[Rfam]
RNA: narK RNA
Organism: Pseudomonas paraeruginosa
RNA sequence: GGCAAAGAGCUUGCUAAGUCCAGCCUGACGGUAGCCAACGGCGGUUACCCCUCCCCGACAAAGACGUCGC
Numbered sequence: 001g002g003c004a005a006a007g008a009g010c011u012u013g014c015u016a017a018g019u020c021c022a023g024c025c026u027g028a029c030g031g032u033a034g035c036c037a038a039c040g041g042c043g044g045u046u047a048c049c050c051c052u053c054c055c056c057g058a059c060a061a062a063g064a065c066g067u068c069g070c
Base pairs, nucleotide, nucleotide: 030049031048032047033046034045035044036043